[Rfam]
RNA sequence: UGCUGGCGGACGCUCGCAUCUGUGCCUGCCUGUGGAUGGUGUUCCUUGUGUCUCAGGCGGAAGCAGCCUUGG
Numbered sequence: 001u002g003c004u005g006g007c008g009g010a011c012g013c014u015c016g017c018a019u020c021u022g023u024g025c026c027u028g029c030c031u032g033u034g035g036a037u038g039g040u041g042u043u044c045c046u047u048g049u050g051u052c053u054c055a056g057g058c059g060g061a062a063g064c065a066g067c068c069u070u071g072g
Stems, first nucleotide, its partner, number of pairs: 006023005012017001024067002027065003031061001034058001037055002